[Rfam]
RNA sequence: GGAAGGGCGACUGACCGUGGGGAGGAAGCGUGGAGCGUAAACCGUGAGCCGAUGAACAAGAAUCGGAUACGAGGCGCUGCCGAGCAGGGCGAGCGGGCAAGAAGCCGCGAAGCUCUUGUGGCCAAGGCGAGGUGGCGUAUAUCCGGCGGUUGUGCGGUGA
Numbered sequence: 001g002g003a004a005g006g007g008c009g010a011c012u013g014a015c016c017g018u019g020g021g022g023a024g025g026a027a028g029c030g031u032g033g034a035g036c037g038u039a040a041a042c043c044g045u046g047a048g049c050c051g052a053u054g055a056a057c058a059a060g061a062a063u064c065g066g067a068u069a070c071g072a073g074g075c076g077c078u079g080c081c082g083a084g085c086a087g088g089g090c091g092a093g094c095g096g097g098c099a100a101g102a103a104g105c106c107g108c109g110a111a112g113c114u115c116u117u118g119u120g121g122c123c124a125a126g127g128c129g130a131g132g133u134g135g136c137g138u139a140u141a142u143c144c145g146g147c148g149g150u151u152g153u154g155c156g157g158u159g160a
Stems, first nucleotide, its partner, number of pairs: 001016002005012002041158006047151005063146006074138003078134004084128002087115004093108004
Dot-bracket structure: ((..((....))..))........................(((((((((((...........((((((.....(((.((((..((.((((..((((........))))...))))...........))..)))).)))..))))))))))).))))))..
RNA: Group II catalytic intron D1-D4-3
Organism: Marinobacter sp. R17